The family of this 127-nucleotide sequence from Urocitellus parryii is "Small nucleolar RNA SNORA40".
Lineage of the source: Eukaryota > Eumetazoa > Gnathostomata > Euteleostomi > Urocitellus.
It scores 60 bits against the family's covariance model.

RNA sequence: AGUAUUUGUGUGUGCAUUUGUUUAACUUGUGGACAAAGAUUUAUAUACUGGUGAAAAAAAGUAAACCCUCUUUUGCAACUCAGAACUCACGAUUCAGUAAGAAUUUUGAUAUAUAUUGAAAAACAUU
Dot-bracket structure: ..((((.((.(..(..(((((....(....).)))))..)....).)).))))...........(...(.(((((.....(((((.((............)).)))))........))))).)...)

The family's RNA type in Rfam is H/ACA-box small nucleolar RNA.